[Rfam]
RNA sequence: UACUAAUUACUGUAACCGCACACAUUAUUUAGAUGUGCUCAAGAAAGUCACAUAGGAC
Numbered sequence: 001u002a003c004u005a006a007u008u009a010c011u012g013u014a015a016c017c018g019c020a021c022a023c024a025u026u027a028u029u030u031a032g033a034u035g036u037g038c039u040c041a042a043g044a045a046a047g048u049c050a051c052a053u054a055g056g057a058c
Stems, first nucleotide, its partner, number of pairs: 021037001023035004
Rfam assigns this 58-nucleotide RNA sequence from Trema orientale to the family "Plastid-ndhJ 3UTR RNA".
For this family Rfam cites "Retrograde signaling in plants: A critical review focusing on the GUN pathway and beyond" (Richter et al., Plant Commun, 2023).
Lineage of the source: Eukaryota > Viridiplantae > Spermatophyta > rosids > Trema.
The family has 50 seed sequences and 869 matches in Rfam 15.1.
Rfam describes the family as follows. Plastid ndhJ is a non-coding RNA (ncRNA) present in plastids. It was identified as a short stem-loop motif in the 3 prime untranslate region (3UTR) of ndhJ gene.
It is annotated as a cis-regulatory element.